[Rfam]
RNA sequence: UGCUGUGAUGACGUAAUUUGCGUCCGAUGCAGUGCUCAGUGACAGUUGCCUGCUGUCGGUGUGCUGGCACUGCCAAGCUGACGACUCCUGGGUGCUGAGCA
Dot-bracket structure: (((.................((((.....(((((....(((((((.......))))).....))...))))).......))))...............)))

Shown here is a 101-nucleotide RNA sequence from Furnarius figulus, a member of the family "Small nucleolar RNA SNORD16". Rfam links the family to the GO terms RNA processing and nucleolus. The match comes from Rfam's covariance-model search (78 bits). Lineage of the source: Eukaryota > Amniota > Archelosauria > Telluraves > Furnarius. The base pairs follow the family's consensus structure, which was predicted with PFOLD.